[Rfam]
RNA: Alphaproteobacterial ar14
Organism: Rhizobium sp. YS-1r
RNA sequence: AAUCAUCGACGGGCGCACUCCUCCUCCCGAGCGCCCACGAUGGGACCAGCAACACCUCCUCCUCCCGGUUGUUGGUCAGUUUCAGAAGCCCGGCGCACCUCCUCCCGCGCCGGGCUUUCUGC
Numbered sequence: 001a002a003u004c005a006u007c008g009a010c011g012g013g014c015g016c017a018c019u020c021c022u023c024c025u026c027c028c029g030a031g032c033g034c035c036c037a038c039g040a041u042g043g044g045a046c047c048a049g050c051a052a053c054a055c056c057u058c059c060u061c062c063u064c065c066c067g068g069u070u071g072u073u074g075g076u077c078a079g080u081u082u083c084a085g086a087a088g089c090c091c092g093g094c095g096c097a098c099c100u101c102c103u104c105c106c107g108c109g110c111c112g113g114g115c116u117u118u119c120u121g122c
Stems, first nucleotide, its partner, number of pairs: 007039002011036006044077010086117011